[Rfam]
RNA sequence: UCAAAGGAGCUGGGGAGCUUGUUAAGCUGAGAGGAUGCCUAUGCAUCGACCCAUCGAACCUGAUUCUGGAUAAUGCCAGCGAAGGAAGCAUCCAUAUGCGUAUA
Numbered sequence: 001u002c003a004a005a006g007g008a009g010c011u012g013g014g015g016a017g018c019u020u021g022u023u024a025a026g027c028u029g030a031g032a033g034g035a036u037g038c039c040u041a042u043g044c045a046u047c048g049a050c051c052c053a054u055c056g057a058a059c060c061u062g063a064u065u066c067u068g069g070a071u072a073a074u075g076c077c078a079g080c081g082a083a084g085g086a087a088g089c090a091u092c093c094a095u096a097u098g099c100g101u102a103u104a
Base pairs, nucleotide, nucleotide: 006092007091009089010088011053012052013051014050017027018026019025020024034047035046036045037044038043059085060084061083066079067078068077069076

The family of this 104-nucleotide RNA from Entomospira culicis is "TPP riboswitch aptamer (THI element)". Rfam's curators write: Vitamin B(1) in its active form thiamin pyrophosphate (TPP) is an essential coenzyme that is synthesised by coupling of pyrimidine and thiazole moieties in bacteria. Taxonomically the source falls in Entomospira (Bacteria, Pseudomonadati, Spirochaetales, Spirochaetaceae). Its family is annotated with thiamine pyrophosphate binding in the Gene Ontology. Pairs were carried over by alignment from the consensus structure, which is taken from published work.